[Rfam]
RNA sequence: AGCAUGCGUGUGUCUCUGUUGAACUGGUGGGCAGACUUAAAGAGAGGUGCAAACGACAAUCCUCUUUUGCAACCUGGAACUCUCCAGUCAGGGUGAGUUUUGAUCCGUGUAGAAGGAGUAUG
Numbered sequence: 001a002g003c004a005u006g007c008g009u010g011u012g013u014c015u016c017u018g019u020u021g022a023a024c025u026g027g028u029g030g031g032c033a034g035a036c037u038u039a040a041a042g043a044g045a046g047g048u049g050c051a052a053a054c055g056a057c058a059a060u061c062c063u064c065u066u067u068u069g070c071a072a073c074c075u076g077g078a079a080c081u082c083u084c085c086a087g088u089c090a091g092g093g094u095g096a097g098u099u100u101u102g103a104u105c106c107g108u109g110u111a112g113a114a115g116g117a118g119u120a121u122g
Stems, first nucleotide, its partner, number of pairs: 002050004009041001012036002016034004024029001059119002062116002065113001067112003075102008084093001